Shown here is a 234-nucleotide RNA from Aquibacillus salsiterrae, a member of the family "Group II catalytic intron D1-D4-6". It scores 114 bits against the family's covariance model. Gene Ontology term of the family: Group II intron splicing.

[Rfam]
RNA sequence: GGAUUCCCGUCGAGUAAGAACUAUCCAUUCGCUCGUAGCGAGUCUUGGAGGACAACAGGUAACUGUUGUCUUUAAGCGUAGACAGUUAGGUAAUGGGCUGGAAGCCGUUUAGGUUGAAGGGAUAGAGCUCCGAAACCCCAAAUUAGAAGGGCUGAUGUGUUGGUCUGUACAGAAAGCAACAUUCCUGUCCUCGUUUAUGGCAAGAGAACAGGAACCUGUAAAUGUCAACGAUAG
Numbered sequence: 001g002g003a004u005u006c007c008c009g010u011c012g013a014g015u016a017a018g019a020a021c022u023a024u025c026c027a028u029u030c031g032c033u034c035g036u037a038g039c040g041a042g043u044c045u046u047g048g049a050g051g052a053c054a055a056c057a058g059g060u061a062a063c064u065g066u067u068g069u070c071u072u073u074a075a076g077c078g079u080a081g082a083c084a085g086u087u088a089g090g091u092a093a094u095g096g097g098c099u100g101g102a103a104g105c106c107g108u109u110u111a112g113g114u115u116g117a118a119g120g121g122a123u124a125g126a127g128c129u130c131c132g133a134a135a136c137c138c139c140a141a142a143u144u145a146g147a148a149g150g151g152c153u154g155a156u157g158u159g160u161u162g163g164u165c166u167g168u169a170c171a172g173a174a175a176g177c178a179a180c181a182u183u184c185c186u187g188u189c190c191u192c193g194u195u196u197a198u199g200g201c202a203a204g205a206g207a208a209c210a211g212g213a214a215c216c217u218g219u220a221a222a223u224g225u226c227a228a229c230g231a232u233a234g
Stems, first nucleotide, its partner, number of pairs: 011035004018030003022203001025200001038086002042083004046078002048073011125226001127225002145219001147217001149216002151177003156171004182214007190206003